Record summary
tRNA: a 73-nucleotide sequence from Thioploca ingrica.
[Rfam]
RNA sequence: GGCCAGAUAGCUCAGGUGGUAGAGCAGUGGACUGAAAAUCCUCGUGUCGGUGGUUCAACUCCACCUCUGGCCA
Numbered sequence: 001g002g003c004c005a006g007a008u009a010g011c012u013c014a015g016g017u018g019g020u021a022g023a024g025c026a027g028u029g030g031a032c033u034g035a036a037a038a039u040c041c042u043c044g045u046g047u048c049g050g051u052g053g054u055u056c057a058a059c060u061c062c063a064c065c066u067c068u069g070g071c072c073a
Stems, first nucleotide, its partner, number of pairs: 001072007010025004027043001029041003049065005